[Rfam]
RNA sequence: ACGACCUUACUUGAACAUGAUCUGUUCUAUAGUCUCAUACCUCUGUAUCCUUGAUUUCUAAGGAGAUAGGAAACCAUGUCUGGUGGAUGAACCAUGGCUGCCUGACUAGAGCGUGAUUAACAGCCCCUCAGGUAGGGUUCCCAGCUCGUUGUGUAGUAGAGAUGAUCGUUCUUGGCUAGACUUUGGUCCGGUCAAGAUGGCAAUGCAGCUGUCUGACAGACU
Number, nucleotide and partner (000 for none) at each position: 001a038002c000003g035004a000005c000006c032007u031008u000009a000010c000011u000012u000013g027014a026015a025016c024017a023018u000019g000020a000021u000022c000023u017024g016025u015026u014027c013028u000029a000030u000031a007032g006033u000034c000035u003036c000037a000038u001039a000040c000041c000042u000043c069044u068045g067046u066047a000048u064049c063050c062051u061052u060053g059054a000055u000056u000057u000058c000059u053060a052061a051062g050063g049064a048065g000066a046067u045068a044069g043070g000071a000072a000073a000074c000075c000076a000077u000078g221079u220080c219081u218082g217083g000084u000085g000086g000087a000088u000089g000090a000091a000092c000093c000094a000095u000096g000097g209098c208099u207100g206101c205102c000103u203104g000105a000106c200107u199108a198109g000110a170111g169112c168113g167114u000115g000116a000117u000118u000119a000120a157121c156122a000123g154124c153125c000126c151127c000128u000129c148130a000131g146132g145133u144134a000135g142136g141137g000138u000139u000140c000141c136142c135143a000144g133145c132146u131147c000148g129149u000150u000151g126152u000153g124154u123155a000156g121157u120158a000159g000160a000161g000162a000163u000164g000165a000166u000167c113168g112169u111170u110171c000172u195173u194174g193175g192176c191177u190178a000179g188180a187181c186182u000183u000184u000185g000186g181187u180188c179189c000190g177191g176192u175193c174194a173195a172196g000197a000198u108199g107200g106201c000202a000203a103204u000205g101206c100207a099208g098209c097210u000211g000212u000213c000214u000215g000216a000217c082218a081219g080220a079221c078222u000
RNA: Plant small nucleolar RNA U3